A member of the RNA family "SAM riboswitch aptamer (S box leader)" from Rummeliibacillus stabekisii, 101 nucleotides long. The base pairs follow the family's consensus structure, which is taken from published work. Rfam describes the family as follows. The SAM riboswitch is found upstream of a number of genes which code for proteins involved in methionine or cysteine biosynthesis in Gram-positive bacteria. A search with the family's covariance model found it, with a score of 86 bits.
RNA sequence: UUCUUAUCCAGAGAGGUGGAGGGACUGGCCCUUUGAAGCCUCGGCAGCGGACUAUUAUAGUACUGUGCCAAUUCCAGUAGCGUAAAGCUAGCAGAUAAGAG
Numbered sequence: 001u002u003c004u005u006a007u008c009c010a011g012a013g014a015g016g017u018g019g020a021g022g023g024a025c026u027g028g029c030c031c032u033u034u035g036a037a038g039c040c041u042c043g044g045c046a047g048c049g050g051a052c053u054a055u056u057a058u059a060g061u062a063c064u065g066u067g068c069c070a071a072u073u074c075c076a077g078u079a080g081c082g083u084a085a086a087g088c089u090a091g092c093a094g095a096u097a098a099g100a101g
Stems, first nucleotide, its partner, number of pairs: 001101008013042005021031003025077004043069004048065002051061004073093001078090004